[Rfam]
RNA sequence: AAGAGUUUCUUCGUUCUCUCAAACAAAACGGGGUGGUGGAGUCAAUCUUGACCCUAUCGGUUUCUUGUUUUUCCUUAAGAACAAGUGGCGUGCAUGUAC
Dot-bracket structure: ........(((((((...........))))))).....(.((........)).)....[[...((((((.]].......))))))..............
Numbered sequence: 001a002a003g004a005g006u007u008u009c010u011u012c013g014u015u016c017u018c019u020c021a022a023a024c025a026a027a028a029c030g031g032g033g034u035g036g037u038g039g040a041g042u043c044a045a046u047c048u049u050g051a052c053c054c055u056a057u058c059g060g061u062u063u064c065u066u067g068u069u070u071u072u073c074c075u076u077a078a079g080a081a082c083a084a085g086u087g088g089c090g091u092g093c094a095u096g097u098a099c
Stems, first nucleotide, its partner, number of pairs: 009033007039054001041052002059072002064085006